About this RNA: The record is a 149-nucleotide RNA sequence from Brachypodium distachyon, which matches "Small nucleolar RNA snoR2/U65" in Rfam.

[Rfam]
RNA sequence: GGCCUGAUGCCACGUCUCCAGUAGCUACGUGCACUGACUGCAGAUGCUAUGAUUGGGCCAACAAAGAGUCGUUUGGUGUCUCACAUGUUGAUAGGAACCUGGGAUUGCAUUCCAAUCAGUCUACAGAGCCGGUUAUUGUGAUUACAUCU
Number, nucleotide and partner (000 for none) at each position: 001g000002g058003c057004c056005u055006g054007a053008u052009g050010c000011c000012a000013c046014g045015u044016c043017u042018c000019c000020a039021g038022u037023a000024g032025c031026u000027a000028c000029g000030u000031g025032c024033a000034c000035u000036g000037a022038c021039u020040g000041c000042a017043g016044a015045u014046g013047c000048u000049a000050u009051g000052a008053u007054u006055g005056g004057g003058c002059c000060a000061a000062c000063a000064a000065a000066g000067a000068g000069u000070c000071g000072u000073u000074u000075g000076g000077u000078g000079u000080c000081u141082c140083a139084c138085a137086u000087g000088u000089u000090g000091a000092u000093a000094g130095g129096a000097a000098c000099c126100u125101g124102g122103g121104a120105u119106u118107g000108c000109a000110u000111u000112c000113c000114a000115a000116u000117c000118a106119g105120u104121c103122u102123a000124c101125a100126g099127a000128g000129c095130c094131g000132g000133u000134u000135a000136u000137u085138g084139u083140g082141a081142u000143u000144a000145c000146a000147u000148c000149u000
Rfam links the family to the GO terms nucleolus and RNA processing.